Rfam assigns this 75-nucleotide RNA sequence from Alligator mississippiensis to the family "Mammalian CPEB3 ribozyme". The family's consensus secondary structure is taken from published work. Rfam describes the family as follows. The mammalian CPEB3 ribozyme is a self cleaving RNA located in the second intron of the CPEB3 gene which belongs to a family of genes regulating messenger RNA polyadenylation. The organism belongs to Alligator, within Eukaryota.
RNA sequence: AUUGCAAGUUUGAAGCCAAAGCAAAAGUACUCCUGGUGCGGCUUGUCAGAUUCCCAUGAAUCUGCGAAUUCUACU
Dot-bracket structure: .............((((..[[.[.[[(((.......)))))))...(((((((....)))))))....]].].]]